[Rfam]
RNA sequence: AGAUAUCUUCGGGGCAGGGAGCGUUUCCCGACCGGCGGUAAAAGUCCGCAAGCUAUCAAGGGAUUGAUAGGAAUGAACUAGUGUAAUUCUAGUACCGACAGUAAAGUCUGAUAGGAGAAGAGUGAA
Numbered sequence: 001a002g003a004u005a006u007c008u009u010c011g012g013g014g015c016a017g018g019g020a021g022c023g024u025u026u027c028c029c030g031a032c033c034g035g036c037g038g039u040a041a042a043a044g045u046c047c048g049c050a051a052g053c054u055a056u057c058a059a060g061g062g063a064u065u066g067a068u069a070g071g072a073a074u075g076a077a078c079u080a081g082u083g084u085a086a087u088u089c090u091a092g093u094a095c096c097g098a099c100a101g102u103a104a105a106g107u108c109u110g111a112u113a114g115g116a117g118a119a120g121a122g123u124g125a126a
Stems, first nucleotide, its partner, number of pairs: 006121005017029003031107002033097002035049004044095002054071001077093005099110003
About this RNA: Shown here is a 126-nucleotide RNA sequence from Aerococcus sp. Group 1, a member of the family "FMN riboswitch aptamer (RFN element)". Its family is annotated with FMN binding in the Gene Ontology. The source organism's lineage runs through Bacteria, Bacillati, Lactobacillales, Aerococcaceae and Aerococcus. A search with the family's covariance model found it, with a score of 90 bits.